A member of the RNA family "Glycine riboswitch aptamer" from Peptoclostridium acidaminophilum, 119 nucleotides long. A search with the family's covariance model found it, with a score of 43 bits. Rfam's curators write: This family represents the bacterial glycine riboswitch. Gene Ontology term of the family: glycine biosynthetic process.

RNA sequence: AUGAAGGCAGCGAGAGAUAUUCAUGCUUAUUCAAAUAAACAUGGAUGGCCGACGGGGCAAUAUAAGAGAAUUGCCAAUUCCUUAUAGAAUCUUUCAGGCGAAAAUAUCGUUGCUCGAUG
Numbered sequence: 001a002u003g004a005a006g007g008c009a010g011c012g013a014g015a016g017a018u019a020u021u022c023a024u025g026c027u028u029a030u031u032c033a034a035a036u037a038a039a040c041a042u043g044g045a046u047g048g049c050c051g052a053c054g055g056g057g058c059a060a061u062a063u064a065a066g067a068g069a070a071u072u073g074c075c076a077a078u079u080c081c082u083u084a085u086a087g088a089a090u091c092u093u094u095c096a097g098g099c100g101a102a103a104a105u106a107u108c109g110u111u112g113c114u115c116g117a118u119g
Stems, first nucleotide, its partner, number of pairs: 006114008021045002048099003051095002055093003061086006